Record summary:
Rfam assigns this 114-nucleotide RNA from Protopolystoma xenopodis to the family "Potassium channel RNA editing signal". For this family Rfam cites "Control of human potassium channel inactivation by editing of a small mRNA hairpin" (Bhalla et al., Nat Struct Mol Biol, 2004). It is annotated as a cis-regulatory element. It scores 92 bits against the family's covariance model. The source organism's lineage runs through Eukaryota, Opisthokonta, Spiralia, Neodermata and Protopolystoma. From the family's description: This family represents a group of sequences related to the human potassium channel Kv1.1 hairpin element which directs the efficient modification of an adenosine to inosine by an adenosine deaminase acting on RNA (ADAR). The ADAR modification causes an isoleucine/valine recoding event which lies in the ion-conducting pore of the potassium channel. It is thought that this editing event targets the process of fast inactivation and allows a more rapid recovery from inactivation at negative potentials.
RNA sequence: GUGGGCUAUGGUGACAUGAGGCCAGUCACGGUUUGGGGCAAAUUAGUCGGUUCAUUGUGUGCAAUUGCAGGAGUGCUUACUAUCGCUCUGCCUGUGCCUGUAAUUGUGUCAAAC
Number, nucleotide and partner (000 for none) at each position: 001g114002u113003g000004g000005g110006c000007u108008a107009u106010g105011g104012u000013g000014a101015c100016a099017u000018g097019a000020g000021g095022c094023c000024a000025g000026u000027c000028a000029c000030g000031g000032u000033u000034u000035g000036g000037g077038g076039c075040a074041a000042a000043u000044u000045a000046g000047u000048c000049g000050g062051u061052u000053c000054a000055u000056u000057g000058u000059g000060u000061g051062c050063a000064a000065u000066u000067g000068c000069a000070g000071g000072a000073g000074u040075g039076c038077u037078u000079a000080c000081u000082a000083u000084c000085g000086c000087u000088c000089u000090g000091c000092c000093u000094g022095u021096g000097c018098c000099u016100g015101u014102a000103a000104u011105u010106g009107u008108g007109u000110c005111a000112a000113a002114c001